[Rfam]
RNA sequence: UUGCCCAUUCAAAGUUAUUUACUUUGCAGUGGCUAACACAGGGGGGCAGAAAAACCUUCUCUCUGAAACUCUGGGAAGGAGUACAGACUCCUCCUGGUAUCCUGUCGUGAGGAACAUAU
Numbered sequence: 001u002u003g004c005c006c007a008u009u010c011a012a013a014g015u016u017a018u019u020u021a022c023u024u025u026g027c028a029g030u031g032g033c034u035a036a037c038a039c040a041g042g043g044g045g046g047c048a049g050a051a052a053a054a055c056c057u058u059c060u061c062u063c064u065g066a067a068a069c070u071c072u073g074g075g076a077a078g079g080a081g082u083a084c085a086g087a088c089u090c091c092u093c094c095u096g097g098u099a100u101c102c103u104g105u106c107g108u109g110a111g112g113a114a115c116a117u118a119u
Stems, first nucleotide, its partner, number of pairs: 002048005008042002014037004019032001022029001057113001059111003063107001071097006078090002
This 119-nucleotide RNA sequence from Hymenochirus boettgeri belongs to the Rfam family "Small nucleolar RNA SNORA26". Taxonomically the source falls in Hymenochirus (Eukaryota, Bilateria, Tetrapoda, Pipoidea). Pairs were carried over by alignment from the consensus structure, which was predicted with RNAalifold. On this family, see Huttenhofer et al., EMBO J 2001: "RNomics: an experimental approach that identifies 201 candidates for novel, small, non-messenger RNAs in mouse". The family has 76 seed sequences and 1,943 matches in Rfam 15.1. From the family's description: The snoRNA HBI-6 belong to the H/ACA family of snoRNAs, guiding the pseudouridylation of position U4522 if the 28S rRNA. HBI-6 is the human orthologue of mouse MBI-6 snoRNA. A search with the family's covariance model found it, with a score of 58 bits.